[Rfam]
RNA sequence: UGCUUUGUUCGCUUAGAUAAAAUAAGUUAUUAUCUUAUUUUAACUCCUAAUAAUAAAGCUAAAUAAAACUUAUUGCUUAUCGAACAUUAAAUCACACUUCAUUGUGGUUUAAUUUUGCAAUUCUCAAACAUAA
Numbered sequence: 001u002g003c004u005u006u007g008u009u010c011g012c013u014u015a016g017a018u019a020a021a022a023u024a025a026g027u028u029a030u031u032a033u034c035u036u037a038u039u040u041u042a043a044c045u046c047c048u049a050a051u052a053a054u055a056a057a058g059c060u061a062a063a064u065a066a067a068a069c070u071u072a073u074u075g076c077u078u079a080u081c082g083a084a085c086a087u088u089a090a091a092u093c094a095c096a097c098u099u100c101a102u103u104g105u106g107g108u109u110u111a112a113u114u115u116u117g118c119a120a121u122u123c124u125c126a127a128a129c130a131u132a133a
Stems, first nucleotide, its partner, number of pairs: 002059008016044001018042009072121005082116003086113011
RNA: Tetrahymena snoRNA TtnuHACA23
Organism: Tetrahymena thermophila